This 135-nucleotide sequence from Mus musculus belongs to the Rfam family "U12 minor spliceosomal RNA".

[Rfam]
RNA sequence: AUUCCUUAAACUUCUAAGUAAGGAAAAUAAUUACUUGGGGAUGAUUCUUGAGUCCUUAUCACUGAUAUAAGACCAAGUUUUAGGUGGGUAAAGCUUGUUCCUAAGUGGAAUUGCCUGAGUAAGUGAAUCUGCCUG
Numbered sequence: 001a002u003u004c005c006u007u008a009a010a011c012u013u014c015u016a017a018g019u020a021a022g023g024a025a026a027a028u029a030a031u032u033a034c035u036u037g038g039g040g041a042u043g044a045u046u047c048u049u050g051a052g053u054c055c056u057u058a059u060c061a062c063u064g065a066u067a068u069a070a071g072a073c074c075a076a077g078u079u080u081u082a083g084g085u086g087g088g089u090a091a092a093g094c095u096u097g098u099u100c101c102u103a104a105g106u107g108g109a110a111u112u113g114c115c116u117g118a119g120u121a122a123g124u125g126a127a128u129c130u131g132c133c134u135g
Base pairs, nucleotide, nucleotide: 004023005022006021007020008019033053034052035051036050037049038048039047055071056070057069058068059067085135086134087133088132089131092130093129095127096126101119102118104116105115
Rfam 15.1 lists 2,106 matches to the family in 1,170 species.
On this family, see Tarn and Steitz, Trends Biochem Sci 1997: "Pre-mRNA splicing: the discovery of a new spliceosome doubles the challenge".
Pairs were carried over by alignment from the consensus structure.
NCBI's taxonomy places the organism under Eukaryota, Bilateria, Craniata, Euteleostomi, Mus.